The family of this 60-nucleotide RNA sequence is "pemK RNA". It is annotated as a cis-regulatory element. The family's consensus secondary structure is taken from published work.
RNA sequence: AUAAUGAUACUUCCGGCGACGGCUAUGCCACAGGAAUGGCUAGAGGUGAAACUCCUAUGU
Numbered sequence: 001a002u003a004a005u006g007a008u009a010c011u012u013c014c015g016g017c018g019a020c021g022g023c024u025a026u027g028c029c030a031c032a033g034g035a036a037u038g039g040c041u042a043g044a045g046g047u048g049a050a051a052c053u054c055c056u057a058u059g060u
Stems, first nucleotide, its partner, number of pairs: 012057001013022003023043003027040003044056003